[Rfam]
The family of this 101-nucleotide sequence from Talaromyces stipitatus is "Small nucleolar RNA Z13/snr52". Taxonomically the source falls in Talaromyces stipitatus (Eukaryota, Ascomycota, saccharomyceta, Pezizomycotina). It is annotated as a C/D-box small nucleolar RNA.

RNA sequence: CUUGAAUCUUAGGAUGAAACAUUUCGGAUGUAAAUCACAGACCUGUUCUGAAAGCGCAAAGCCGUGUGGAUAUUUCCGUUGCCUUCCUUCUGAUCAUUGAU
Numbered sequence: 001c002u003u004g005a006a007u008c009u010u011a012g013g014a015u016g017a018a019a020c021a022u023u024u025c026g027g028a029u030g031u032a033a034a035u036c037a038c039a040g041a042c043c044u045g046u047u048c049u050g051a052a053a054g055c056g057c058a059a060a061g062c063c064g065u066g067u068g069g070a071u072a073u074u075u076c077c078g079u080u081g082c083c084u085u086c087c088u089u090c091u092g093a094u095c096a097u098u099g100a101u
Stems, first nucleotide, its partner, number of pairs: 003100001005098001025078004
Dot-bracket structure: ..(.(...................((((..............................................))))...................).).

Pairs were carried over by alignment from the consensus structure, which was predicted with PFOLD.